[Rfam]
RNA sequence: AAAAAGGGUGUUUGCCUCUUCGAUGGCACACGCACCGGCAACGGUGCGUGGGGUAUGGUUAUCAAGACAUACUCAACAUAUUAUUUUUUGAUCAGAGAGGCAGUUGGCUAUCCUUAUGUACCGGCGCCUCC
Dot-bracket structure: .......(((((((((........))))(((((((((....)))))))))(((((((..........))))))))))))..................((((.(((((.(((......))))))))))))..
Numbered sequence: 001a002a003a004a005a006g007g008g009u010g011u012u013u014g015c016c017u018c019u020u021c022g023a024u025g026g027c028a029c030a031c032g033c034a035c036c037g038g039c040a041a042c043g044g045u046g047c048g049u050g051g052g053g054u055a056u057g058g059u060u061a062u063c064a065a066g067a068c069a070u071a072c073u074c075a076a077c078a079u080a081u082u083a084u085u086u087u088u089u090g091a092u093c094a095g096a097g098a099g100g101c102a103g104u105u106g107g108c109u110a111u112c113c114u115u116a117u118g119u120a121c122c123g124g125c126g127c128c129u130c131c
Stems, first nucleotide, its partner, number of pairs: 008079005013028004029050009051074007098129004103125005109120003

Notes
The family of this 131-nucleotide sequence from Galleria mellonella is "U11 spliceosomal RNA". Rfam links the family to the GO terms U11 snRNP, pre-mRNA 5'-splice site binding and mRNA 5'-splice site recognition. A search with the family's covariance model found it, with a score of 89 bits. The source organism's lineage runs through Eukaryota, Insecta, Glossata, Heteroneura and Galleria. For this family Rfam cites "Additional low-abundance human small nuclear ribonucleoproteins: U11, U12, etc" (Montzka and Steitz, Proc Natl Acad Sci U S A, 1988).